[Rfam]
RNA sequence: UAAUGUUAAAGGCACACUCAUUGAAAGAUGGGGUCGCAAAACUAUAGGGGCUACAACAAUUUCAAUUAUGAAAUGUUAAGCCAGCCAGUUCCCGAA
Numbered sequence: 001u002a003a004u005g006u007u008a009a010a011g012g013c014a015c016a017c018u019c020a021u022u023g024a025a026a027g028a029u030g031g032g033g034u035c036g037c038a039a040a041a042c043u044a045u046a047g048g049g050g051c052u053a054c055a056a057c058a059a060u061u062u063c064a065a066u067u068a069u070g071a072a073a074u075g076u077u078a079a080g081c082c083a084g085c086c087a088g089u090u091c092c093c094g095a096a
Stems, first nucleotide, its partner, number of pairs: 012037002017032006040090004047086002049082003056076003
A member of the RNA family "c-di-GMP-I riboswitch aptamer" from Cohnella abietis, 96 nucleotides long. It scores 66 bits against the family's covariance model. Gene Ontology term of the family: cyclic-di-GMP binding.